[Rfam]
RNA sequence: CCGGCCGUUCCGUCGGCGUAGCCUACCUGUGCAUGCGUUGCCGGAAACAGCGACGUGUGAAGCCACGGGGACAACGUGUCGGGCCUUCGGGCCGCGUCAGCUUCCGCGAGGAGGAGACGUCACCUGC
Numbered sequence: 001c002c003g004g005c006c007g008u009u010c011c012g013u014c015g016g017c018g019u020a021g022c023c024u025a026c027c028u029g030u031g032c033a034u035g036c037g038u039u040g041c042c043g044g045a046a047a048c049a050g051c052g053a054c055g056u057g058u059g060a061a062g063c064c065a066c067g068g069g070g071a072c073a074a075c076g077u078g079u080c081g082g083g084c085c086u087u088c089g090g091g092c093c094g095c096g097u098c099a100g101c102u103u104c105c106g107c108g109a110g111g112a113g114g115a116g117a118c119g120u121c122a123c124c125u126g127c
Stems, first nucleotide, its partner, number of pairs: 002018001004017004027068005032059010043048001082093004095119004104111002
This 127-nucleotide RNA sequence from Paraburkholderia humisilvae belongs to the Rfam family "Group II catalytic intron D1-D4-7".
The organism belongs to Paraburkholderia, within Bacteria.
A search with the family's covariance model found it, with a score of 73 bits.
Rfam 15.1 lists 1,296 matches to the family in 705 species.
Rfam describes the family as follows. Group II introns are found in rRNA, tRNA and mRNA of organelles in fungi, plants and protists, and also in mRNA in bacteria.
Gene Ontology term of the family: Group II intron splicing.